Description: The record is a 74-nucleotide RNA from Trifolium medium, which matches "MIR5272 microRNA precursor family" in Rfam. The match comes from Rfam's covariance-model search (65 bits).
RNA sequence: UUGAAUGUAAAUUGAUUUAUGUUUGGAUGUAUUUAACUAAAAGUGAUUCUUAUCAAUUUGUGUUGUUUGGAUAA
Numbered sequence: 001u002u003g004a005a006u007g008u009a010a011a012u013u014g015a016u017u018u019a020u021g022u023u024u025g026g027a028u029g030u031a032u033u034u035a036a037c038u039a040a041a042a043g044u045g046a047u048u049c050u051u052a053u054c055a056a057u058u059u060g061u062g063u064u065g066u067u068u069g070g071a072u073a074a
Stems, first nucleotide, its partner, number of pairs: 011061002014058004021053002025049004030045005